[Rfam]
RNA sequence: GAAGACCCUGUUGAGCUUGACUCUAAUCUAUCUAGUGGAAUCGAUUUUUUGGUAUAAGCUAGGUGGGAGAGUAAUCGGACGUGUAAUACCACUACUUAGGAUACAAUUUCACUCACGUUAAGUAGCGAAAAAAAUAAUAAUUUGUAUUGAGAUGUGUUAAACCCUGUGGGUAAUUCGAGUAACAGACGAAGAUAGACAGGGAGUUUGGCUGGGGCGGCACAUCUGUUACAUGAUAACGCAGGUGUCCAAAGAUGGACUCAAAGAGGACAGAAACCUCUUGUUGAACAUAAGGGUAUAAGUUUAUUUGAAUAGUGAAACCAGUAAUUGUACUAAAUCUGAAAUGAAGGCCUAACGAUCCCUAAGAAUUUGCUAUGACAAAAAGAAUCGAGUAACUUAAAAUGCUAUGAAAAUUAUAAGGUGUCAUAGUCCUUUGACAAUAAGGUUUGGGGUGUCAGAAAAGUUACCACAGGGAUAACUGGCUUGUGGCUGCCAAGCGAUCAUAGCGACGUUGCUUUUUGAUCCUUCGAUGU
Numbered sequence: 001g002a003a004g005a006c007c008c009u010g011u012u013g014a015g016c017u018u019g020a021c022u023c024u025a026a027u028c029u030a031u032c033u034a035g036u037g038g039a040a041u042c043g044a045u046u047u048u049u050u051g052g053u054a055u056a057a058g059c060u061a062g063g064u065g066g067g068a069g070a071g072u073a074a075u076c077g078g079a080c081g082u083g084u085a086a087u088a089c090c091a092c093u094a095c096u097u098a099g100g101a102u103a104c105a106a107u108u109u110c111a112c113u114c115a116c117g118u119u120a121a122g123u124a125g126c127g128a129a130a131a132a133a134a135u136a137a138u139a140a141u142u143u144g145u146a147u148u149g150a151g152a153u154g155u156g157u158u159a160a161a162c163c164c165u166g167u168g169g170g171u172a173a174u175u176c177g178a179g180u181a182a183c184a185g186a187c188g189a190a191g192a193u194a195g196a197c198a199g200g201g202a203g204u205u206u207g208g209c210u211g212g213g214g215c216g217g218c219a220c221a222u223c224u225g226u227u228a229c230a231u232g233a234u235a236a237c238g239c240a241g242g243u244g245u246c247c248a249a250a251g252a253u254g255g256a257c258u259c260a261a262a263g264a265g266g267a268c269a270g271a272a273a274c275c276u277c278u279u280g281u282u283g284a285a286c287a288u289a290a291g292g293g294u295a296u297a298a299g300u301u302u303a304u305u306u307g308a309a310u311a312g313u314g315a316a317a318c319c320a321g322u323a324a325u326u327g328u329a330c331u332a333a334a335u336c337u338g339a340a341a342u343g344a345a346g347g348c349c350u351a352a353c354g355a356u357c358c359c360u361a362a363g364a365a366u367u368u369g370c371u372a373u374g375a376c377a378a379a380a381a382g383a384a385u386c387g388a389g390u391a392a393c394u395u396a397a398a399a400u401g402c403u404a405u406g407a408a409a410a411u412u413a414u415a416a417g418g419u420g421u422c423a424u425a426g427u428c429c430u431u432u433g434a435c436a437a438u439a440a441g442g443u444u445u446g447g448g449g450u451g452u453c454a455g456a457a458a459a460g461u462u463a464c465c466a467c468a469g470g471g472a473u474a475a476c477u478g479g480c481u482u483g484u485g486g487c488u489g490c491c492a493a494g495c496g497a498u499c500a501u502a503g504c505g506a507c508g509u510u511g512c513u514u515u516u517u518g519a520u521c522c523u524u525c526g527a528u529g530u
Stems, first nucleotide, its partner, number of pairs: 007470004012466002014462005020204004027196007035112007043104001045101004051095001062093005069076002117183004126177004133143002161171003207220001208218003221243006246347002252304006258284002261279006285294002310332005316326002335344002358448006366441003479520001481518001483517001485513003489509002494504002
Shown here is a 530-nucleotide part of an RNA from Entamoeba invadens, a member of the family "Eukaryotic large subunit ribosomal RNA". The base pairs follow the family's consensus structure, which is taken from published work. Gene Ontology terms of the family: structural constituent of ribosome and ribosome. The family has 88 seed sequences and 107,465 matches in Rfam 15.1.